[Rfam]
RNA sequence: UUUCCUCUUUCACUACCUUUUCUCCUAAUAAUAUAUUUUAGUGGCUAUGCUUAUGGGAUAGAUUAAAAUUGUCAUGAUUUGUGAGAGAGGAUUUUUGUUUGUUUUUGUUUUUUUGGUAUCCUUCUAUAUGAAACGGCUGGACAGAAAUUU
Numbered sequence: 001u002u003u004c005c006u007c008u009u010u011c012a013c014u015a016c017c018u019u020u021u022c023u024c025c026u027a028a029u030a031a032u033a034u035a036u037u038u039u040a041g042u043g044g045c046u047a048u049g050c051u052u053a054u055g056g057g058a059u060a061g062a063u064u065a066a067a068a069u070u071g072u073c074a075u076g077a078u079u080u081g082u083g084a085g086a087g088a089g090g091a092u093u094u095u096u097g098u099u100u101g102u103u104u105u106u107g108u109u110u111u112u113u114u115g116g117u118a119u120c121c122u123u124c125u126a127u128a129u130g131a132a133a134c135g136g137c138u139g140g141a142c143a144g145a146a147a148u149u150u
Stems, first nucleotide, its partner, number of pairs: 004057003013044004071137003088125004

Annotation
Shown here is a 150-nucleotide RNA from Microcebus murinus, a member of the family "Small nucleolar RNA SNORA29". The family is grouped with related families in Rfam's "SNORA20 clan". Rfam describes the family as follows. ACA29 is a member of the H/ACA class of snoRNA that guide the sites of modification of uridines to pseudouridines. The organism belongs to Microcebus, within Eukaryota. The literature on the family includes a 2001 paper in EMBO J by Huttenhofer et al., "RNomics: an experimental approach that identifies 201 candidates for novel, small, non-messenger RNAs in mouse".